[Rfam]
RNA: c-di-GMP-I-GGC riboswitch aptamer
Organism: Desulfonatronospira thiodismutans
RNA sequence: ACAUAUCCAGCCAAACCCGCCGCAAGGCGGGGACGGAAAGCCACGGGCCCCCGGGAUUUAAAAGUCAUAGCAUACGCGGGCAGCCGGGUUGCCGGAU
Numbered sequence: 001a002c003a004u005a006u007c008c009a010g011c012c013a014a015a016c017c018c019g020c021c022g023c024a025a026g027g028c029g030g031g032g033a034c035g036g037a038a039a040g041c042c043a044c045g046g047g048c049c050c051c052c053g054g055g056a057u058u059u060a061a062a063a064g065u066c067a068u069a070g071c072a073u074a075c076g077c078g079g080g081c082a083g084c085c086g087g088g089u090u091g092c093c094g095g096a097u
Stems, first nucleotide, its partner, number of pairs: 001097001011036002016031006034083001039090004044086003047081003